[Rfam]
RNA sequence: CCCUAGCCCCGAUUGAAGUGGAAAUCCUUUGCAGAGUUUACGAAGCAAAGAUUGUAACGGAAAGCGGGAAUCAGC
Numbered sequence: 001c002c003c004u005a006g007c008c009c010c011g012a013u014u015g016a017a018g019u020g021g022a023a024a025u026c027c028u029u030u031g032c033a034g035a036g037u038u039u040a041c042g043a044a045g046c047a048a049a050g051a052u053u054g055u056a057a058c059g060g061a062a063a064g065c066g067g068g069a070a071u072c073a074g075c
Base pairs, nucleotide, nucleotide: 009067010066011065013063014062018058019057023053024052025051026050029048030047031046032045

Notes
Flavo-1 RNA: a 75-nucleotide RNA sequence from Flavobacterium pallidum. Pairs were carried over by alignment from the consensus structure, which is taken from published work. Rfam classes the family as a small RNA. NCBI's taxonomy places the organism under Bacteria, Bacteroidota, Flavobacteriales, Flavobacteriaceae, Flavobacterium.